Rfam assigns this 112-nucleotide RNA from Rattus norvegicus to the family "Small nucleolar RNA SNORA44". On this family, see Huttenhofer et al., EMBO J 2001: "RNomics: an experimental approach that identifies 201 candidates for novel, small, non-messenger RNAs in mouse". ACA44 is a member of the H/ACA class of snoRNA that guide the sites of modification of uridines to pseudouridines. NCBI's taxonomy places the organism under Eukaryota, Metazoa, Teleostomi, Glires, Rattus.
[Rfam]
RNA sequence: GUGUGUGUUGAACUUAAGAGUUGAACACCAACUGCAUGCCAGAGUAACGGAGAGACUUUGACAGCCCAGGUUAUCACAGUGCCUGCUGUUGCCACUCAGCUCUCCUAUAUGU
Numbered sequence: 001g002u003g004u005g006u007g008u009u010g011a012a013c014u015u016a017a018g019a020g021u022u023g024a025a026c027a028c029c030a031a032c033u034g035c036a037u038g039c040c041a042g043a044g045u046a047a048c049g050g051a052g053a054g055a056c057u058u059u060g061a062c063a064g065c066c067c068a069g070g071u072u073a074u075c076a077c078a079g080u081g082c083c084u085g086c087u088g089u090u091g092c093c094a095c096u097c098a099g100c101u102c103u104c105c106u107a108u109a110u111g112u
Base pairs, nucleotide, nucleotide: 002016003015005013006012049105050104051103052102053101054100064092065091067085068084069083070082